[Rfam]
The record is a 126-nucleotide sequence from Vigna radiata, which matches "MIR168 microRNA precursor family" in Rfam.
RNA sequence: CACUGUGCGGUCUCUAAUUCGCUUGGUGCAGGUCGGGAACCGGUUUUUGCGGCAGAAUGGUGGAGUGGUAGCCGGCGGCGAAUUGGAUCCCGCCUUGCAUCAACUGAAUCGGAGGCCGCAGUGAAG
Numbered sequence: 001c002a003c004u005g006u007g008c009g010g011u012c013u014c015u016a017a018u019u020c021g022c023u024u025g026g027u028g029c030a031g032g033u034c035g036g037g038a039a040c041c042g043g044u045u046u047u048u049g050c051g052g053c054a055g056a057a058u059g060g061u062g063g064a065g066u067g068g069u070a071g072c073c074g075g076c077g078g079c080g081a082a083u084u085g086g087a088u089c090c091c092g093c094c095u096u097g098c099a100u101c102a103a104c105u106g107a108a109u110c111g112g113a114g115g116c117c118g119c120a121g122u123g124a125a126g
Base pairs, nucleotide, nucleotide: 013113014112017109018108019107020106023103024102025101026100027099028098029097030096031095032094034092035091036090037089038088040086041085042084043083044082

A reference for the family is Reinhart et al. (2002), "MicroRNAs in plants", Genes Dev. It scores 109 bits against the family's covariance model. Taxonomically the source falls in Vigna radiata (Eukaryota, Streptophytina, Pentapetalae, Papilionoideae).